[Rfam]
RNA sequence: UUCUGUCUCGCACAUUCCAUUGUUCCAAUAUUCCGCUUCGAGUGAUUAUUGAGCAAUGCGCAUGUGCGGGACAGAU
Numbered sequence: 001u002u003c004u005g006u007c008u009c010g011c012a013c014a015u016u017c018c019a020u021u022g023u024u025c026c027a028a029u030a031u032u033c034c035g036c037u038u039c040g041a042g043u044g045a046u047u048a049u050u051g052a053g054c055a056a057u058g059c060g061c062a063u064g065u066g067c068g069g070g071a072c073a074g075a076u
Stems, first nucleotide, its partner, number of pairs: 002075010013064003017060001018058008027050004032045002

Background:
A member of the RNA family "mir-233 microRNA precursor family", 76 nucleotides long. A search with the family's covariance model found it, with a score of 85 bits. For this family Rfam cites "Repertoire and evolution of miRNA genes in four divergent nematode species" (de Wit et al., Genome Res, 2009). The family's consensus secondary structure was predicted with RNAalifold. Gene Ontology terms of the family: miRNA-mediated post-transcriptional gene silencing and RISC complex.